[Rfam]
The family of this 93-nucleotide RNA sequence from Gossypium raimondii is "MIR390 microRNA precursor family".
RNA sequence: UGGGAUAACCUGUAAAGCUCAGGAGGGAUAGCGCCAUCUCAAAUAAAAACCUAUAUAUGGCGCUAUCUAUCCUGAGUUUCAUGGGUUCUUCCU
Numbered sequence: 001u002g003g004g005a006u007a008a009c010c011u012g013u014a015a016a017g018c019u020c021a022g023g024a025g026g027g028a029u030a031g032c033g034c035c036a037u038c039u040c041a042a043a044u045a046a047a048a049a050c051c052u053a054u055a056u057a058u059g060g061c062g063c064u065a066u067c068u069a070u071c072c073u074g075a076g077u078u079u080c081a082u083g084g085g086u087u088c089u090u091c092c093u
Base pairs, nucleotide, nucleotide: 010084016078017077018076019075020074021073022072023071024070026068027067028066029065030064031063032062033061034060035059036058037057
Background: On this family, see Gustafson et al., Nucleic Acids Res 2005: "ASRP: the Arabidopsis Small RNA Project Database". Taxonomically the source falls in Gossypium (Eukaryota, Mesangiospermae, Malvaceae, Malvoideae).